[Rfam]
RNA sequence: CCCUACAAAUAUAGAAUAUUUGGUUUUGGUCCUUGGUAUUUUGUUUUAAUCAUUGUAAAAUCAUUUCAUAUUGAAAUUGGUCCCUAUAAUAUUCAUUUUAGUCCUCAUUUUGAGGGACUAAAAUCAAAUAUUCUACAUAUUACAAGGACCAAAUCCAAUAUGAAUCAAUUUUACAAGGACUAAAACAAAAUACCAAGGACCAUAACCAAAUUUUUUAUAUUUGCAUGGC
Numbered sequence: 001c002c003c004u005a006c007a008a009a010u011a012u013a014g015a016a017u018a019u020u021u022g023g024u025u026u027u028g029g030u031c032c033u034u035g036g037u038a039u040u041u042u043g044u045u046u047u048a049a050u051c052a053u054u055g056u057a058a059a060a061u062c063a064u065u066u067c068a069u070a071u072u073g074a075a076a077u078u079g080g081u082c083c084c085u086a087u088a089a090u091a092u093u094c095a096u097u098u099u100a101g102u103c104c105u106c107a108u109u110u111u112g113a114g115g116g117a118c119u120a121a122a123a124u125c126a127a128a129u130a131u132u133c134u135a136c137a138u139a140u141u142a143c144a145a146g147g148a149c150c151a152a153a154u155c156c157a158a159u160a161u162g163a164a165u166c167a168a169u170u171u172u173a174c175a176a177g178g179a180c181u182a183a184a185a186c187a188a189a190a191u192a193c194c195a196a197g198g199a200c201c202a203u204a205a206c207c208a209a210a211u212u213u214u215u216u217a218u219a220u221u222u223g224c225a226u227g228g229c
Stems, first nucleotide, its partner, number of pairs: 006223008015214002018211003022207004027202008036193013050179002053176009065164002068161006077152007087142006107124005
Description
Rfam assigns this 229-nucleotide sequence from Medicago truncatula to the family "MIR2630 microRNA precursor family". Rfam's curators put it in the seed alignment. Its family is annotated with miRNA-mediated post-transcriptional gene silencing and RISC complex in the Gene Ontology. Pairs were carried over by alignment from the consensus structure, which was predicted with RNAalifold.